A member of the RNA family "CRISPR RNA direct repeat element" from Clostridium tetani, 30 nucleotides long. The organism belongs to Clostridium tetani, within Bacteria. It is one of the family's seed sequences.
RNA sequence: AUUUAAAUACAACUCUUGUUAUUGUUCAAC
Numbered sequence: 001a002u003u004u005a006a007a008u009a010c011a012a013c014u015c016u017u018g019u020u021a022u023u024g025u026u027c028a029a030c
Base pairs, nucleotide, nucleotide: 009019010018011017012016